[Rfam]
RNA sequence: CUGCAGCUUAUUAAGCCGACCAGUUCUACCCUCAGUGCGGUUCUGGUGUGCAAAGGCUGCAGACAGCGACUCUUUGGUUGUGUAUGAACUCAGCUGGGAGGUGCUGAGUGCUUUAAGGGACCACUGAGACAAAA
Numbered sequence: 001c002u003g004c005a006g007c008u009u010a011u012u013a014a015g016c017c018g019a020c021c022a023g024u025u026c027u028a029c030c031c032u033c034a035g036u037g038c039g040g041u042u043c044u045g046g047u048g049u050g051c052a053a054a055g056g057c058u059g060c061a062g063a064c065a066g067c068g069a070c071u072c073u074u075u076g077g078u079u080g081u082g083u084a085u086g087a088a089c090u091c092a093g094c095u096g097g098g099a100g101g102u103g104c105u106g107a108g109u110g111c112u113u114u115a116a117g118g119g120a121c122c123a124c125u126g127a128g129a130c131a132a133a134a
Base pairs, nucleotide, nucleotide: 002052003051004050005049019047020046021045022044026040027039076122077121078120088109089108090107091106092105
The family of this 134-nucleotide RNA from Larimichthys crocea is "Small nucleolar RNA SNORA70". Gene Ontology terms of the family: RNA processing and nucleolus. For this family Rfam cites "Pseudouridine in RNA: what, where, how, and why" (Charette and Gray, IUBMB Life, 2000). It scores 105 bits against the family's covariance model. Rfam 15.1 lists 5,173 matches to the family in 383 species. About the family: snoRNA U70 seems to be exclusive to mammals and is a member of the H/ACA class of snoRNA which contain H (ANANNA) and ACA box motifs. The source organism's lineage runs through Eukaryota, Metazoa, Actinopteri, Euteleosteomorpha and Larimichthys.